Plant signal recognition particle RNA: a 306-nucleotide RNA sequence. Rfam classes the family as a non-coding RNA gene. Rfam 15.1 lists 4,988 matches to the family in 266 species.
RNA sequence: GCCGAGCCACUAACGAAGGCUUGUAACCCGAGUGGGGGCUUUAAAGUGAUUGAACAUUGGGCUAGCGUAUCCAGCUGGGCCGAAGUUGGCUGAUUGCUGGCUUGCCCAUUCCAAGUGUGGAGUUGGGCUAUGUGGCUCGGGCGUAGGCUCGGGCCACGUAGCUCCUAAAUUGAAGGGCAAUGCGUAAGGCUGGCUUCACAGAGCAACGAAAACCUUCAGCUUCGGACAGUGGAAGGAUAACGGGCCGGUUGCCAUCUUGGCCCAUUAAAGCUCGAUGGGCUAGCUCUUAAUUGAACAAUCAUUUUU
Number, nucleotide and partner (000 for none) at each position: 001g039002c038003c037004g022005a021006g020007c019008c018009a000010c015011u000012a000013a000014c000015g010016a000017a000018g008019g007020c006021u005022u004023g000024u000025a000026a000027c036028c035029c034030g000031a000032g000033u000034g029035g028036g027037g003038g002039c001040u000041u000042u000043a305044a304045a303046g302047u301048g300049a299050u298051u297052g296053a000054a000055c293056a292057u290058u289059g288060g285061g284062c283063u282064a281065g280066c000067g000068u277069a276070u275071c274072c000073a272074g271075c270076u269077g263078g262079g261080c260081c259082g258083a257084a000085g255086u000087u254088g253089g252090c000091u000092g249093a000094u000095u000096g000097c248098u247099g246100g245101c244102u243103u242104g241105c000106c236107c235108a000109u234110u233111c232112c231113a230114a000115g227116u226117g000118u224119g223120g222121a221122g220123u219124u000125g164126g163127g162128c161129u160130a159131u158132g157133u156134g155135g154136c153137u152138c151139g150140g149141g148142c147143g000144u000145a000146g000147g142148c141149u140150c139151g138152g137153g136154c135155c134156a133157c132158g131159u130160a129161g128162c127163u126164c125165c000166u000167a000168a000169a000170u000171u218172g217173a216174a215175g214176g213177g000178c000179a000180a000181u210182g000183c208184g207185u206186a000187a000188g000189g000190c201191u200192g199193g000194c000195u000196u000197c000198a000199c192200a191201g190202a000203g000204c000205a000206a185207c184208g183209a000210a181211a000212a000213c176214c175215u174216u173217c172218a171219g123220c122221u121222u120223c119224g118225g000226a116227c115228a000229g000230u113231g112232g111233a110234a109235g107236g106237a000238u000239a000240a000241c104242g103243g102244g101245c100246c099247g098248g097249u092250u000251g000252c089253c088254a087255u085256c000257u083258u082259g081260g080261c079262c078263c077264a000265u000266u000267a000268a000269a076270g075271c074272u073273c000274g071275a070276u069277g068278g000279g000280c065281u064282a063283g062284c061285u060286c000287u000288u059289a058290a057291u000292u056293g055294a000295a000296c052297a051298a050299u049300c048301a047302u046303u045304u044305u043306u000